About this RNA:
The family of this 94-nucleotide sequence from Dionaea muscipula is "Plastid-rps12 3UTR RNA". Rfam describes the family as follows. Plastid rpl20 is a non-coding RNA (ncRNA) recognised in plastids.
[Rfam]
RNA sequence: GGUUUCUAUUCGUAUAAAUCCAAUCAACUCGAUUCAAGAUCAGAACGAAGCAAUUUCCCAUUGGUAGAAAAUCUUAUCCAUUAAGCGGGAGAAG
Numbered sequence: 001g002g003u004u005u006c007u008a009u010u011c012g013u014a015u016a017a018a019u020c021c022a023a024u025c026a027a028c029u030c031g032a033u034u035c036a037a038g039a040u041c042a043g044a045a046c047g048a049a050g051c052a053a054u055u056u057c058c059c060a061u062u063g064g065u066a067g068a069a070a071a072u073c074u075u076a077u078c079c080a081u082u083a084a085g086c087g088g089g090a091g092a093a094g
Base pairs, nucleotide, nucleotide: 009023010022012020056090057089058088059087060081061080063078064077065076066075067074
Description
For this family Rfam cites "Retrograde signaling in plants: A critical review focusing on the GUN pathway and beyond" (Richter et al., Plant Commun, 2023). By type it is a cis-regulatory element.